[Rfam]
The record is a 143-nucleotide RNA from Mus musculus, which matches "Small nucleolar RNA SNORA48" in Rfam. Its Rfam clan is "SNORA48 clan". A search with the family's covariance model found it, with a score of 62 bits. Rfam describes the family as follows. The snoRNA ACA 48 has been identified to guide pseudouridylation of the residue U3797 in the 28S rRNA subunit. Rfam links the family to the GO terms nucleolus and RNA processing.

RNA sequence: UGUCCCAACAAUGGUCUAAGAGACACCUUAUGGAUGGUGUUGUUCUUAUAUUGGUCAGGGGCAGAGCAAAUAGCCAUCUUUUGUUCAUCCUAGCUUGAUGCCUGGCUUGACAUCCAAAGCUAUCUUACGCCUUGGACUCAUAA
Numbered sequence: 001u002g003u004c005c006c007a008a009c010a011a012u013g014g015u016c017u018a019a020g021a022g023a024c025a026c027c028u029u030a031u032g033g034a035u036g037g038u039g040u041u042g043u044u045c046u047u048a049u050a051u052u053g054g055u056c057a058g059g060g061g062c063a064g065a066g067c068a069a070a071u072a073g074c075c076a077u078c079u080u081u082u083g084u085u086c087a088u089c090c091u092a093g094c095u096u097g098a099u100g101c102c103u104g105g106c107u108u109g110a111c112a113u114c115c116a117a118a119g120c121u122a123u124c125u126u127a128c129g130c131c132u133u134g135g136a137c138u139c140a141u142a143a
Stems, first nucleotide, its partner, number of pairs: 001063006012053003018047003022041006083137005097131001099129001103127003108122002111119001
The base pairs follow the family's consensus structure, which was predicted with RNAalifold. On this family, see Ofengand and Bakin, J Mol Biol 1997: "Mapping to nucleotide resolution of pseudouridine residues in large subunit ribosomal RNAs from representative eukaryotes, prokaryotes, archaebacteria, mitochondria and chloroplasts". The family's RNA type in Rfam is H/ACA-box small nucleolar RNA.